[Rfam]
RNA sequence: GGUGGAAGCUUCCAAAGGGAUCGCAUUGAUCCAUAUUAUUAGAUAUUUGAUGAUCAACUCUUUUAUUUAUCAUCAUGGAAUGGAAGCACUUGAUAAUUUGGAUCGUGCUAUCUCUUCGGAAGUUUCCUC
Numbered sequence: 001g002g003u004g005g006a007a008g009c010u011u012c013c014a015a016a017g018g019g020a021u022c023g024c025a026u027u028g029a030u031c032c033a034u035a036u037u038a039u040u041a042g043a044u045a046u047u048u049g050a051u052g053a054u055c056a057a058c059u060c061u062u063u064u065a066u067u068u069a070u071c072a073u074c075a076u077g078g079a080a081u082g083g084a085a086g087c088a089c090u091u092g093a094u095a096a097u098u099u100g101g102a103u104c105g106u107g108c109u110a111u112c113u114c115u116u117c118g119g120a121a122g123u124u125u126c127c128u129c
Stems, first nucleotide, its partner, number of pairs: 002129001004127003008123006015116007023108004028104005

Record summary:
The family of this 129-nucleotide RNA from Helianthus annuus is "mir-393 microRNA precursor family". NCBI's taxonomy places the organism under Eukaryota, Euphyllophyta, Pentapetalae, Asterales, Helianthus. The match comes from Rfam's covariance-model search (85 bits). The literature on the family includes a 2012 paper in J Plant Physiol by Kruszka et al., "Role of microRNAs and other sRNAs of plants in their changing environments". Pairs were carried over by alignment from the consensus structure.